[Rfam]
RNA sequence: CGAGUGCGGCAACGCACCUCGUGCAAAGAGAAGUCAGCAGAGGGCAUAGUAUUCGACCCACGCGGUCGUCGAAGGCC
Dot-bracket structure: ((.(((((....)))))..))............((....)).(((........((((.......))))......)))
Numbered sequence: 001c002g003a004g005u006g007c008g009g010c011a012a013c014g015c016a017c018c019u020c021g022u023g024c025a026a027a028g029a030g031a032a033g034u035c036a037g038c039a040g041a042g043g044g045c046a047u048a049g050u051a052u053u054c055g056a057c058c059c060a061c062g063c064g065g066u067c068g069u070c071g072a073a074g075g076c077c
Stems, first nucleotide, its partner, number of pairs: 001021002004017005034041002043077003054068004

Shown here is a 77-nucleotide RNA from Neorhodopirellula pilleata, a member of the family "Group II catalytic intron D1-D4-1". The organism belongs to Neorhodopirellula, within Bacteria. Group II introns are found in rRNA, tRNA and mRNA of organelles in fungi, plants and protists, and also in mRNA in bacteria. The base pairs follow the family's consensus structure.